[Rfam]
RNA sequence: GUGCAUUCGGUCGAAAUUGAACCUACGAAUUCGCCAAUUAUGAGUUGGGUAAUUUAACCAUUCAGCCAUGGAUGC
Numbered sequence: 001g002u003g004c005a006u007u008c009g010g011u012c013g014a015a016a017u018u019g020a021a022c023c024u025a026c027g028a029a030u031u032c033g034c035c036a037a038u039u040a041u042g043a044g045u046u047g048g049g050u051a052a053u054u055u056a057a058c059c060a061u062u063c064a065g066c067c068a069u070g071g072a073u074g075c
Stems, first nucleotide, its partner, number of pairs: 003075006010026002013023001040069003044066007